The family of this 289-nucleotide sequence from Salmo trutta is "7SK RNA". The literature on the family includes a 2002 paper in Curr Biol by Blencowe, "Transcription: surprising role for an elusive small nuclear RNA". It is annotated as a non-coding RNA gene. The family is grouped with related families in Rfam's "7SK clan". 7SK was discovered as an abundant small nuclear RNA in the mid-70s but a possible function has only recently been suggested. Two independent studies have found that 7SK RNA binds the CDK9/cyclin T complex (known as elongation factor P-TEFb). P-TEFb activates transcription by phosphorylating the C-terminal domain of RNA polymerase II. This process is negatively regulated by the 7SK RNP. The secondary structure of 7SK RNA shown here was proposed by Wasserman and Steitz on the basis of chemical modification and enzymatic cleavage experiments. This family contains a number of annotated pseudogenes and 7SK derived repeats. The threshold is artificially high to minimise the pseudogene count.
[Rfam]
RNA sequence: AAAUGUGAGGGCGAUCUGGCUGUAACAUGUCACGCCAUUUAUCGAGUUGAUUAGGCUGGCUGGGCAGGCGUCACCUUUCUCCCUCAUCACUCCUUGUGUGUCCCUGCUGAAGCCCGUGCUUUGAGGAAGAGGACCAUACUUCCCCAUUAGUAGACGUGUAGCUGCACUCCCCUGCUAGAAUCUCCAAACGAGCUCCAGGCCCAGUUGUAGGAGAAACGUAGGGAAGUCAAGCUCUAAGACAUAUAACACAUCCAAAUGAGCCACUGCAUGUGGCAGUCUAACAGCAAUU
Number, nucleotide and partner (000 for none) at each position: 001a000002a000003a091004u000005g087006u086007g085008a084009g083010g082011g081012c000013g078014a077015u000016c000017u000018g075019g074020c000021u000022g000023u000024a000025a071026c070027a000028u066029g065030u064031c063032a000033c059034g000035c055036c054037a000038u000039u000040u000041a051042u050043c049044g000045a000046g000047u000048u000049g043050a042051u041052u000053a000054g036055g035056c000057u000058g000059g033060c000061u000062g000063g031064g030065c029066a028067g000068g000069c000070g026071u025072c000073a000074c019075c018076u000077u014078u013079c000080u000081c011082c010083c009084u008085c007086a006087u005088c000089a000090c000091u003092c000093c000094u000095u000096g000097u000098g000099u000100g000101u154102c153103c000104c150105u149106g148107c123108u000109g121110a120111a000112g119113c118114c000115c000116g000117u000118g113119c112120u110121u109122u000123g107124a000125g145126g144127a000128a000129g000130a000131g142132g141133a140134c000135c000136a000137u000138a000139c000140u133141u132142c131143c000144c126145c125146a000147u000148u106149a105150g104151u000152a000153g102154a101155c000156g000157u000158g000159u000160a000161g232162c231163u230164g000165c000166a000167c226168u225169c000170c223171c222172c221173u220174g219175c218176u000177a000178g000179a000180a000181u000182c213183u212184c211185c210186a000187a000188a208189c207190g206191a205192g000193c000194u000195c000196c000197a000198g000199g000200c000201c000202c000203a000204g000205u191206u190207g189208u188209a000210g185211g184212a183213g182214a000215a000216a000217c000218g175219u174220a173221g172222g171223g170224a000225a168226g167227u000228c000229a000230a163231g162232c161233u000234c000235u000236a000237a000238g000239a000240c000241a000242u000243a000244u000245a000246a000247c000248a000249c000250a000251u000252c000253c000254a289255a288256a000257u000258g000259a000260g282261c000262c000263a277264c276265u275266g274267c273268a000269u000270g000271u000272g000273g267274c266275a265276g264277u263278c000279u000280a000281a000282c260283a000284g000285c000286a000287a000288u255289u254